[Rfam]
RNA sequence: AUCGUAUGGCUUAAAUGUUCAAUCGGUCCCUUAACUUGAUUUCAAGUUUCGGUUUGAACCUUUUUCUUAAUUUAAUUCAAAAAAAUGUUAAAUUUUGGUCCUUAACUUAUUUAAUUAUUAUAAGUUUGGUCCCUUAACUUAUUUAAUUAAUAUUAGUUUGAUCCCUAAAUUUAAUGUUUUUUUUAAUUAAAUUAACAGAAGGGAUCAAACCGAUACUUUAAACAAAGUUAAAAGGACCUAAACGGAUCAUUUAUUACUUAUGAGA
Numbered sequence: 001a002u003c004g005u006a007u008g009g010c011u012u013a014a015a016u017g018u019u020c021a022a023u024c025g026g027u028c029c030c031u032u033a034a035c036u037u038g039a040u041u042u043c044a045a046g047u048u049u050c051g052g053u054u055u056g057a058a059c060c061u062u063u064u065u066c067u068u069a070a071u072u073u074a075a076u077u078c079a080a081a082a083a084a085a086u087g088u089u090a091a092a093u094u095u096u097g098g099u100c101c102u103u104a105a106c107u108u109a110u111u112u113a114a115u116u117a118u119u120a121u122a123a124g125u126u127u128g129g130u131c132c133c134u135u136a137a138c139u140u141a142u143u144u145a146a147u148u149a150a151u152a153u154u155a156g157u158u159u160g161a162u163c164c165c166u167a168a169a170u171u172u173a174a175u176g177u178u179u180u181u182u183u184u185a186a187u188u189a190a191a192u193u194a195a196c197a198g199a200a201g202g203g204a205u206c207a208a209a210c211c212g213a214u215a216c217u218u219u220a221a222a223c224a225a226a227g228u229u230a231a232a233a234g235g236a237c238c239u240a241a242a243c244g245g246a247u248c249a250u251u252u253a254u255u256a257c258u259u260a261u262g263a264g265a
Stems, first nucleotide, its partner, number of pairs: 002263005008257001023240001025238003029234001031231007040222002044218002
A member of the RNA family "MIR2655 microRNA precursor family" from Medicago truncatula, 265 nucleotides long.
Gene Ontology terms of the family: miRNA-mediated post-transcriptional gene silencing and RISC complex.
Taxonomically the source falls in Medicago (Eukaryota, Embryophyta, rosids, Papilionoideae).
The base pairs follow the family's consensus structure, which was predicted with RNAalifold.